[Rfam]
RNA: mir-87 microRNA precursor family
RNA sequence: UGGAAGCCCGUCUGAAAUUUGUGCUCAGGCCUGUUUCUAUGACUAGGUGAGCAAAGUUUCAGGUGUGUUGCCGU
Numbered sequence: 001u002g003g004a005a006g007c008c009c010g011u012c013u014g015a016a017a018u019u020u021g022u023g024c025u026c027a028g029g030c031c032u033g034u035u036u037c038u039a040u041g042a043c044u045a046g047g048u049g050a051g052c053a054a055a056g057u058u059u060c061a062g063g064u065g066u067g068u069u070g071c072c073g074u
Stems, first nucleotide, its partner, number of pairs: 002072002005069003009065007017057004024051004030047003